[Rfam]
RNA sequence: UUUUGCUUGUGUGUGGAUGGUGUUUAGCAUUAGGGACAGGGGUGCUGGUGUGUGGAUUUUGUUCAGCACCAAGGACAGGUGUGUUUGCCU
Number, nucleotide and partner (000 for none) at each position: 001u000002u000003u000004u081005g080006c079007u078008u077009g076010u075011g000012u000013g000014u000015g000016g000017a000018u071019g070020g069021u068022g067023u066024u065025u000026a063027g062028c061029a060030u000031u000032a057033g000034g051035g000036a049037c048038a000039g046040g045041g000042g000043u000044g000045c040046u039047g000048g037049u036050g000051u034052g000053u000054g000055g000056a000057u032058u000059u000060u029061g028062u027063u026064c000065a024066g023067c022068a021069c020070c019071a018072a000073g000074g000075a010076c009077a008078g007079g006080u005081g004082u000083g000084u000085u000086u000087g000088c000089c000090u000

Shown here is a 90-nucleotide sequence from Branchiostoma belcheri, a member of the family "mir-2060 microRNA precursor family".
Its family is annotated with miRNA-mediated post-transcriptional gene silencing and RISC complex in the Gene Ontology.